[Rfam]
RNA sequence: GAUCGCAGUGAUGACUGUUGAAAAAUCAAGCUCAACAGACCGGAAAACAGGUUCAUCCUGUGUGUGUCGAUAUUUCUAAUCUGAGCGAUC
Numbered sequence: 001g002a003u004c005g006c007a008g009u010g011a012u013g014a015c016u017g018u019u020g021a022a023a024a025a026u027c028a029a030g031c032u033c034a035a036c037a038g039a040c041c042g043g044a045a046a047a048c049a050g051g052u053u054c055a056u057c058c059u060g061u062g063u064g065u066g067u068c069g070a071u072a073u074u075u076c077u078a079a080u081c082u083g084a085g086c087g088a089u090c
Base pairs, nucleotide, nucleotide: 001090002089003088004087005086006085
Dot-bracket structure: ((((((..............................................................................))))))

A member of the RNA family "Small nucleolar RNA Z107/R87" from Spinacia oleracea, 90 nucleotides long. The literature on the family includes a 2001 paper in J Mol Biol by Barneche et al., "Identification of 66 box C/D snoRNAs in Arabidopsis thaliana: extensive gene duplications generated multiple isoforms predicting new ribosomal RNA 2'-O-methylation sites". Rfam classes the family as a C/D-box small nucleolar RNA. Pairs were carried over by alignment from the consensus structure, which was predicted with RNAfold.